[Rfam]
A member of the RNA family "c-di-AMP riboswitch aptamer (ydaO/yuaA leader)" from Paenibacillus aquistagni, 197 nucleotides long.
Lineage of the source: Bacteria > Bacillati > Bacillota > Caryophanales > Paenibacillus.
A search with the family's covariance model found it, with a score of 84 bits.
Gene Ontology terms of the family: regulation of gene expression and cyclic-di-AMP binding.
This family represents a conserved RNA structure found upstream of the ydaO and yuaA genes in Bacillus subtilis and related genes in other bacteria.
RNA sequence: GAACCAGUAACGCUGAAUCUUCUAGUUCAUAGAAGAGCGGGGGAACCAACAGCUAAUCUGCGAGUGCCGCGCAGACAGCGGAGUGUAUCCUUGGGGUGAAUUACGAACGAUCGAGCCAUGAGCCGGUCCGUUCGGAUAGGGCGACUCUCAGUCCCGAAUCCGACAGCUAACCUCGCAAGCGUAUGGAGAGAGGUCCU
Numbered sequence: 001g002a003a004c005c006a007g008u009a010a011c012g013c014u015g016a017a018u019c020u021u022c023u024a025g026u027u028c029a030u031a032g033a034a035g036a037g038c039g040g041g042g043g044a045a046c047c048a049a050c051a052g053c054u055a056a057u058c059u060g061c062g063a064g065u066g067c068c069g070c071g072c073a074g075a076c077a078g079c080g081g082a083g084u085g086u087a088u089c090c091u092u093g094g095g096g097u098g099a100a101u102u103a104c105g106a107a108c109g110a111u112c113g114a115g116c117c118a119u120g121a122g123c124c125g126g127u128c129c130g131u132u133c134g135g136a137u138a139g140g141g142c143g144a145c146u147c148u149c150a151g152u153c154c155c156g157a158a159u160c161c162g163a164c165a166g167c168u169a170a171c172c173u174c175g176c177a178a179g180c181g182u183a184u185g186g187a188g189a190g191a192g193g194u195c196c197u
Stems, first nucleotide, its partner, number of pairs: 011181004018036007037176006047093002094161003102136001104134006139155003